[Rfam]
RNA sequence: CCCCUUUUCAAACCGCCCGGCAGCCCCUAUCUAUGGAAUGUCCCGCAAGGGACUAUGGUGAUAAACGCGCAUGUAAUAAACGGAUCGGACCCGGGGGCGGUACCCGGCGGCUCCACCAAAAACCCUUCAUUUGGGGGUGCAUGGGGCCGAAACAGGAUCGACGGACGUCUAAAGAUGUUAGCUUUCACUCGGCGGGAUGCCACCGUUAUCGGUUCACCUAAGCUAGUUGCAAAUGACAACAAAGCUCCGAUGGCUCUCGCAGCGUAAGCUGUGCGAAAAGUCGAAAUCUAAGUCCUAAGGCUUUGCAGCUUUGGGCGGGGUUCGCAGGCACCUGGCAACAGAAGCCUGCACU
Numbered sequence: 001c002c003c004c005u006u007u008u009c010a011a012a013c014c015g016c017c018c019g020g021c022a023g024c025c026c027c028u029a030u031c032u033a034u035g036g037a038a039u040g041u042c043c044c045g046c047a048a049g050g051g052a053c054u055a056u057g058g059u060g061a062u063a064a065a066c067g068c069g070c071a072u073g074u075a076a077u078a079a080a081c082g083g084a085u086c087g088g089a090c091c092c093g094g095g096g097g098c099g100g101u102a103c104c105c106g107g108c109g110g111c112u113c114c115a116c117c118a119a120a121a122a123c124c125c126u127u128c129a130u131u132u133g134g135g136g137g138u139g140c141a142u143g144g145g146g147c148c149g150a151a152a153c154a155g156g157a158u159c160g161a162c163g164g165a166c167g168u169c170u171a172a173a174g175a176u177g178u179u180a181g182c183u184u185u186c187a188c189u190c191g192g193c194g195g196g197a198u199g200c201c202a203c204c205g206u207u208a209u210c211g212g213u214u215c216a217c218c219u220a221a222g223c224u225a226g227u228u229g230c231a232a233a234u235g236a237c238a239a240c241a242a243a244g245c246u247c248c249g250a251u252g253g254c255u256c257u258c259g260c261a262g263c264g265u266a267a268g269c270u271g272u273g274c275g276a277a278a279a280g281u282c283g284a285a286a287u288c289u290a291a292g293u294c295c296u297a298a299g300g301c302u303u304u305g306c307a308g309c310u311u312u313g314g315g316c317g318g319g320g321u322u323c324g325c326a327g328g329c330a331c332c333u334g335g336c337a338a339c340a341g342a343a344g345c346c347u348g349c350a351c352u
Stems, first nucleotide, its partner, number of pairs: 040053005057189005067182002069178004081167002085164003091107005108149007190205003196215002199213003318333004324349006
Dot-bracket structure: .......................................(((((....)))))...(((((.....((((((........((..(((...(((((.......)))))(((((((............................)))))))............))).)).......))))..))..)))))[[[...((.(((.]]].....)))))......................................................................................................[[[[..((((((]]]]..........))))))...
Source information: Rfam assigns this 352-nucleotide sequence from Algicella marina to the family "Alphaproteobacteria transfer-messenger RNA". Rfam classes the family as a non-coding RNA gene. It scores 311 bits against the family's covariance model. The source organism's lineage runs through Bacteria, Pseudomonadota, Alphaproteobacteria, Rhodobacterales and Algicella.